[Rfam]
RNA sequence: AACCAAGGUUUUCCUCGGCAGUUAACUGCAGCUGGUUUUUGAAUUUCUCGGCAGUUAACUGUCGAAGAGGCA
Number, nucleotide and partner (000 for none) at each position: 001a000002a000003c000004c000005a000006a000007g000008g000009u000010u000011u000012u068013c067014c000015u065016c064017g063018g062019c061020a060021g059022u058023u057024a056025a055026c054027u053028g052029c051030a000031g000032c000033u000034g000035g000036u000037u000038u000039u000040u000041g000042a000043a000044u000045u000046u000047c000048u000049c000050g000051g029052c028053a027054g026055u025056u024057a023058a022059c021060u020061g019062u018063c017064g016065a015066a000067g013068a012069g000070g000071c000072a000